[Rfam]
RNA sequence: GGUGGAACCCGGCCCCCCACCGGUGUUUGUCCUACAGGGGAGAGCAUCAAACCACCAUAAGGUGCUUUGGUAAAGAGCCAAGGUAUUGAGCGUUAUGGAAAAGGCUGCGUCAUGAGCGUGGUCAGGU
Numbered sequence: 001g002g003u004g005g006a007a008c009c010c011g012g013c014c015c016c017c018c019a020c021c022g023g024u025g026u027u028u029g030u031c032c033u034a035c036a037g038g039g040g041a042g043a044g045c046a047u048c049a050a051a052c053c054a055c056c057a058u059a060a061g062g063u064g065c066u067u068u069g070g071u072a073a074a075g076a077g078c079c080a081a082g083g084u085a086u087u088g089a090g091c092g093u094u095a096u097g098g099a100a101a102a103g104g105c106u107g108c109g110u111c112a113u114g115a116g117c118g119u120g121g122u123c124a125g126g127u
Stems, first nucleotide, its partner, number of pairs: 001021005022048006030041004053126001055098006061087002064084003068080004104123001105121005
The family of this 127-nucleotide sequence is "Group II catalytic intron D1-D4-2".
The literature on the family includes a 2001 paper in EMBO J by Chu et al., "Control of branch-site choice by a group II intron".
Rfam's curators write: Group II introns are found in rRNA, tRNA and mRNA of organelles in fungi, plants and protists, and also in mRNA in bacteria.